A member of the RNA family "pan motif" from Calderihabitans maritimus, 96 nucleotides long. The family's RNA type in Rfam is cis-regulatory element. The source organism's lineage runs through Bacteria, Bacillati, Clostridia, Calderihabitantaceae and Calderihabitans.

RNA sequence: CAGAUGGCAUCUUAUGGGAGCCAUACUGCGAUUUUCAUAAUUUAGUGCAGUUGUCCAAAAUUGCCGCUUGGAGCCAGGUAGGACCAAGACGGAAGG
Dot-bracket structure: ((((((((.((......))))))).)))...................................((((((((..((.....)).))))).)))....